Rfam assigns this 34-nucleotide RNA sequence from Polaribacter sp. Hel_I_88 to the family "S16-Flavobacteria ribosomal protein leader". The organism belongs to Polaribacter, within Bacteria. It is one of the family's seed sequences. The family's consensus secondary structure is taken from published work. For this family Rfam cites "Discovery of 20 novel ribosomal leader candidates in bacteria and archaea" (Eckert and Weinberg, BMC Microbiol, 2020).

[Rfam]
RNA sequence: UUAAUAACAAAGGUCGAGAACCUUAAAAAAUUAA
Numbered sequence: 001u002u003a004a005u006a007a008c009a010a011a012g013g014u015c016g017a018g019a020a021c022c023u024u025a026a027a028a029a030a031u032u033a034a
Stems, first nucleotide, its partner, number of pairs: 001034005010024005